The family of this 384-nucleotide RNA sequence from Bacillus sp. OxB-1 is "Bacterial RNase P class B". Rfam links the family to the GO terms ribonuclease P activity, dimeric ribonuclease P complex and tRNA processing. By type it is a ribozyme. Rfam's curators write: Ribonuclease P (RNase P) is a ubiquitous endoribonuclease, found in archaea, bacteria and eukarya as well as chloroplasts and mitochondria.
[Rfam]
Nucleotides: 384
Stems, first nucleotide, its partner, number of pairs: 004384003007380001008325007016034006039378003043375005048241005053071004059066001077236005082103006104125001105123006126231002129170004137161004144155003177229002179225003194213004199208003245261003265294006295310006328363003333358004
Number, partner (000 for none) and nucleotide at each position: 001000g002000a003000a004384u005383u006382u007380a008325g009324g010323u011322a012321a013320u014319c015000g016034c017033u018032g019031c020030a021029a022000c023000g024000u025000a026000a027000a028000g029021u030020u031019g032018u033017a034016g035000a036000g037000g038000a039378a040377a041376g042000u043375c044374c045373a046372u047371g048241c049240u050239c051238a052237c053071a054070c055069g056068g057000u058000u059066c060000u061000g062000a063000g064000a065000u066059g067000u068056c069055c070054g071053u072000a073000g074000u075000g076000u077236u078235c079234g080233u081232g082103c083102c084101c085100g086099g087098c088000g089000a090000a091000a092000a093000a094000a095000u096000a097000a098087g099086c100085c101084g102083g103082g104125g105123c106122a107121c108120c109119g110118u111000g112000c113000a114000u115000u116000g117000c118110a119109c120108g121107g122106u123105g124000a125104c126231g127230g128000c129170g130169g131168g132167g133000a134000u135000a136000a137161a138160u139159c140158c141000u142000a143000c144155g145154u146153c147000c148000u149000u150000c151000g152000g153146g154145a155144u156000a157000u158140g159139g160138a161137u162000g163000a164000g165000g166000u167132u168131c169130c170129c171000u172000g173000a174000a175000a176000a177229g178228u179225g180224c181223c182000a183000c184000a185000g186000u187000g188000a189000c190000g191000u192000a193000g194213c195212c196211g197210g198000u199208c200207c201206g202000g203000a204000a205000a206201c207200g208199g209000u210197c211196c212195g213194g214000g215000u216000g217000g218000a219000a220000c221000g222000c223181g224180g225179u226000a227000a228178a229177c230127c231126c232081c233080a234079c235078g236077a237052g238051u239050g240049a241048g242000a243000a244000a245261c246260c247259c248000a249000a250000a251000u252000u253000a254000u255000g256000g257000u258000a259247g260246g261245g262000g263000c264000a265294c266293u267292c268291u269290u270289c271000g272000g273000a274000a275000g276000g277000a278000a279000a280000u281000g282000a283000a284000c285000g286000g287000a288000a289270g290269a291268a292267g293266g294265g295310a296309c297308a298307g299306a300305c301000a302000a303000c304000a305300g306299u307298c308297u309296g310295u311000a312000g313000a314000u315000a316000g317000a318000u319014g320013a321012u322011u323010a324009c325008c326000a327000c328363c329362c330361u331000a332000a333358g334357u335356a336355c337000g338000a339000g340000g341000c342000g343000g344000a345000a346000g347000c348000c349000g350000u351000u352000u353000g354000a355336g356335u357334a358333c359000a360000c361330g362329g363328g364000a365000a366000c367000a368000a369000a370000a371047c372046a373045u374044g375043g376041c377040u378039u379000a380007u381000c382006a383005a384004a